[Rfam]
RNA sequence: UUUAAGGAUUUGAAGACUUCUACUUCCAUACUUGAAGAAUUUGAAGACUUCGACUUGCAUACUUGGAGGAUUUGAAGACUUCUACU
Numbered sequence: 001u002u003u004a005a006g007g008a009u010u011u012g013a014a015g016a017c018u019u020c021u022a023c024u025u026c027c028a029u030a031c032u033u034g035a036a037g038a039a040u041u042u043g044a045a046g047a048c049u050u051c052g053a054c055u056u057g058c059a060u061a062c063u064u065g066g067a068g069g070a071u072u073u074g075a076a077g078a079c080u081u082c083u084a085c086u
Stems, first nucleotide, its partner, number of pairs: 001084001004081003009076006017068004025059001027057002032053006